[Rfam]
RNA sequence: UGACGGGGGCCCGCACAAGCAGCGGAGCGUGUGGUUUAAUUCGAUGCUACACGAAGAACCUUACCAAGAUUUGACAUGCAUGUAGUAGUGAACUGAAAGGGGAACGACCUGUUAAGUCAGGAACUUGCACAGGUGCUGCAUGGCUGUCGUCAGCUCGUGCCGUGAGGUGUUUGGUUAAGUCCUGCAACGAGCGCAACCCUUGUUGCUAGUUAAAUUUUCUAGCGAGACUGCCCCGCGAAACGGGGAGGAAGGUGGGGAUGACGUCAAGUCAGCAUGGCCUUUAUAUCUUGGGCUACACACACGCUACAAUGGACAGAACAAUAGGUUGCAACAGUGCGAACUGGAGCUAAUCCCCAAAGCUGUCCUCAGUUCGGAUUGCAGGCUGAAACCCGCCUGCAUGAAGUUGGAGUUGCUAGUAACCGCAUAUCAGCAUGGUGCGGUGAAUACGUUCUCGGGCCUUGUACACACCGCCCGUCACGUCAUGAAAGCCGGUAACACUUGAAGUCGAUGUGCCAACCGCAAGGAGGCAGUCGCCGAGGGUGGGACUGGUAAUUGGGACGAAGUCGUAACAAGGUAGCCGUAGCGGAAGCUGCGGCUGGA
Numbered sequence: 001u002g003a004c005g006g007g008g009g010c011c012c013g014c015a016c017a018a019g020c021a022g023c024g025g026a027g028c029g030u031g032u033g034g035u036u037u038a039a040u041u042c043g044a045u046g047c048u049a050c051a052c053g054a055a056g057a058a059c060c061u062u063a064c065c066a067a068g069a070u071u072u073g074a075c076a077u078g079c080a081u082g083u084a085g086u087a088g089u090g091a092a093c094u095g096a097a098a099g100g101g102g103a104a105c106g107a108c109c110u111g112u113u114a115a116g117u118c119a120g121g122a123a124c125u126u127g128c129a130c131a132g133g134u135g136c137u138g139c140a141u142g143g144c145u146g147u148c149g150u151c152a153g154c155u156c157g158u159g160c161c162g163u164g165a166g167g168u169g170u171u172u173g174g175u176u177a178a179g180u181c182c183u184g185c186a187a188c189g190a191g192c193g194c195a196a197c198c199c200u201u202g203u204u205g206c207u208a209g210u211u212a213a214a215u216u217u218u219c220u221a222g223c224g225a226g227a228c229u230g231c232c233c234c235g236c237g238a239a240a241c242g243g244g245g246a247g248g249a250a251g252g253u254g255g256g257g258a259u260g261a262c263g264u265c266a267a268g269u270c271a272g273c274a275u276g277g278c279c280u281u282u283a284u285a286u287c288u289u290g291g292g293c294u295a296c297a298c299a300c301a302c303g304c305u306a307c308a309a310u311g312g313a314c315a316g317a318a319c320a321a322u323a324g325g326u327u328g329c330a331a332c333a334g335u336g337c338g339a340a341c342u343g344g345a346g347c348u349a350a351u352c353c354c355c356a357a358a359g360c361u362g363u364c365c366u367c368a369g370u371u372c373g374g375a376u377u378g379c380a381g382g383c384u385g386a387a388a389c390c391c392g393c394c395u396g397c398a399u400g401a402a403g404u405u406g407g408a409g410u411u412g413c414u415a416g417u418a419a420c421c422g423c424a425u426a427u428c429a430g431c432a433u434g435g436u437g438c439g440g441u442g443a444a445u446a447c448g449u450u451c452u453c454g455g456g457c458c459u460u461g462u463a464c465a466c467a468c469c470g471c472c473c474g475u476c477a478c479g480u481c482a483u484g485a486a487a488g489c490c491g492g493u494a495a496c497a498c499u500u501g502a503a504g505u506c507g508a509u510g511u512g513c514c515a516a517c518c519g520c521a522a523g524g525a526g527g528c529a530g531u532c533g534c535c536g537a538g539g540g541u542g543g544g545a546c547u548g549g550u551a552a553u554u555g556g557g558a559c560g561a562a563g564u565c566g567u568a569a570c571a572a573g574g575u576a577g578c579c580g581u582a583g584c585g586g587a588a589g590c591u592g593c594g595g596c597u598g599g600a
Stems, first nucleotide, its partner, number of pairs: 001465002003462003007459007015449002019413005024307001026305008034296002040055004064291007077129002080126001082124002088105002093100002108121004132280002135278004141274002143269003146265001148263002153192006159168003171184001173182002198257004203225007228248002231245005311365006324353002328347002333342003372403001377398007419441007468573001470570001473566002478560004483555003488550006496542004504535001506533004511529004517524002575598010
The family of this 600-nucleotide part of an RNA from Dehalococcoides mccartyi is "Bacterial small subunit ribosomal RNA".
NCBI's taxonomy places the organism under Bacteria, Bacillati, Dehalococcoidales, Dehalococcoidaceae, Dehalococcoides mccartyi.
The family's consensus secondary structure is taken from published work.
A reference for the family is Yusupov et al. (2001), "Crystal structure of the ribosome at 5.5 A resolution", Science.
Rfam links the family to the GO terms ribosome and structural constituent of ribosome.
Clan: SSU clan.